[Rfam]
RNA: L31-Gammaproteobacteria ribosomal protein leader
RNA sequence: CGCAUGGUGUCCGGCUUUGGAUCGGAUAGCGAUGCGGCCCAACUUGAGGU
Numbered sequence: 001c002g003c004a005u006g007g008u009g010u011c012c013g014g015c016u017u018u019g020g021a022u023c024g025g026a027u028a029g030c031g032a033u034g035c036g037g038c039c040c041a042a043c044u045u046g047a048g049g050u
Base pairs, nucleotide, nucleotide: 001036002035003034004033005032007030008029011025012024013023014022015020